The record is a 109-nucleotide RNA from Aspergillus carbonarius, which matches "tRNA" in Rfam. Transfer RNA (tRNA) molecules are approximately 80 nucleotides in length. The match comes from Rfam's covariance-model search (47 bits). Gene Ontology term of the family: triplet codon-amino acid adaptor activity. The family's RNA type in Rfam is transfer RNA. Pairs were carried over by alignment from the consensus structure, which is taken from published work.
RNA sequence: GACACUUUGGCCGAGUGGUUUAAGGCGCAGGCCUGCUACUUGCUGUUCCUAGUAACUAGUAGAUUAGCCUGUGGGUUCGCCCGCCUGGGUUCGAGUCCCAGAGGUGUCG
Numbered sequence: 001g002a003c004a005c006u007u008u009g010g011c012c013g014a015g016u017g018g019u020u021u022a023a024g025g026c027g028c029a030g031g032c033c034u035g036c037u038a039c040u041u042g043c044u045g046u047u048c049c050u051a052g053u054a055a056c057u058a059g060u061a062g063a064u065u066a067g068c069c070u071g072u073g074g075g076u077u078c079g080c081c082c083g084c085c086u087g088g089g090u091u092c093g094a095g096u097c098c099c100a101g102a103g104g105u106g107u108c109g
Base pairs, nucleotide, nucleotide: 001108002107003106004105005104006103007102010026011025012024028071029070030069031068032067085101086100087099088098089097